This 132-nucleotide RNA from Pterocles burchelli belongs to the Rfam family "Small nucleolar RNA SNORA69". By type it is an H/ACA-box small nucleolar RNA.

RNA sequence: AAAGCAGGCUGCAAUUGCAGUGCUUCAUUCUGUGGGAGUACUGCCAUUCCCCUGCUGACAGUAACUCUGUUAACGCUGUCUUUGGUUUCACCUGUGCAGUGGUGAGACUGUUUGGUCUUAACACGUACAAGU
Numbered sequence: 001a002a003a004g005c006a007g008g009c010u011g012c013a014a015u016u017g018c019a020g021u022g023c024u025u026c027a028u029u030c031u032g033u034g035g036g037a038g039u040a041c042u043g044c045c046a047u048u049c050c051c052c053u054g055c056u057g058a059c060a061g062u063a064a065c066u067c068u069g070u071u072a073a074c075g076c077u078g079u080c081u082u083u084g085g086u087u088u089c090a091c092c093u094g095u096g097c098a099g100u101g102g103u104g105a106g107a108c109u110g111u112u113u114g115g116u117c118u119u120a121a122c123a124c125g126u127a128c129a130a131g132u
Stems, first nucleotide, its partner, number of pairs: 003056006018043009068123006075116001083110010